[Rfam]
RNA sequence: UCCCCGCUUUUCCUCCCUGAGCGGGUGCCUUUGUGUGUGACAGCAAAAGGCUUGAACCCCCGACUCCGCGUCGGGGGUCUUUUUU
Numbered sequence: 001u002c003c004c005c006g007c008u009u010u011u012c013c014u015c016c017c018u019g020a021g022c023g024g025g026u027g028c029c030u031u032u033g034u035g036u037g038u039g040a041c042a043g044c045a046a047a048a049g050g051c052u053u054g055a056a057c058c059c060c061c062g063a064c065u066c067c068g069c070g071u072c073g074g075g076g077g078u079c080u081u082u083u084u085u
Stems, first nucleotide, its partner, number of pairs: 003025006027051004031046003057077008
This 85-nucleotide RNA from Tepidimonas alkaliphilus belongs to the Rfam family "Burkholderia RNA 7 (anti-hemB)". This RNA motif was identified by computational search in b-proteobacteria Burkholderia. The family's RNA type in Rfam is small RNA. Its family is annotated with bacterial biofilm matrix and protein binding in the Gene Ontology. The literature on the family includes a 2017 paper in Sci Rep by Sass et al., "Identification of small RNAs abundant in Burkholderia cenocepacia biofilms reveal putative regulators with a potential role in carbon and iron metabolism".